Shown here is a 171-nucleotide sequence from Anaerococcus tetradius, a member of the family "Group II catalytic intron D1-D4-3". Lineage of the source: Bacteria > Bacillota > Tissierellales > Peptoniphilaceae > Anaerococcus tetradius. The pairing is the family consensus, mapped onto this sequence. From the family's description: Group II introns are found in rRNA, tRNA and mRNA of organelles in fungi, plants and protists, and also in mRNA in bacteria.

RNA sequence: UCCAUCGUGAGGUGGAAUCUGAAGGAAGCCCUAGGCAAACUCUUGGUCCGACGAACAGAAAUCACAUAAGGCAGGUACGUAGGAUAAGGCUGCCAAACAAGUUGAAGUCCAAUAACUACACGGAAUACGUAAAUGUAAAUGUGGCAGAUAGAUGAGAGGAAAGAACAUGCC
Numbered sequence: 001u002c003c004a005u006c007g008u009g010a011g012g013u014g015g016a017a018u019c020u021g022a023a024g025g026a027a028g029c030c031c032u033a034g035g036c037a038a039a040c041u042c043u044u045g046g047u048c049c050g051a052c053g054a055a056c057a058g059a060a061a062u063c064a065c066a067u068a069a070g071g072c073a074g075g076u077a078c079g080u081a082g083g084a085u086a087a088g089g090c091u092g093c094c095a096a097a098c099a100a101g102u103u104g105a106a107g108u109c110c111a112a113u114a115a116c117u118a119c120a121c122g123g124a125a126u127a128c129g130u131a132a133a134u135g136u137a138a139a140u141g142u143g144g145c146a147g148a149u150a151g152a153u154g155a156g157a158g159g160a161a162a163g164a165a166c167a168u169g170c171c
Stems, first nucleotide, its partner, number of pairs: 001016006028171001030169001032167001036163001040158006046149003050145001062144005071136003076131006082110004088103004
Dot-bracket structure: ((((((....))))))...........(.(.(...(...(((((((((.(...........(((((....(((..((((((((((..((((........))))...))))...............))))))..)))...)))))).)))...))))))....)...).).)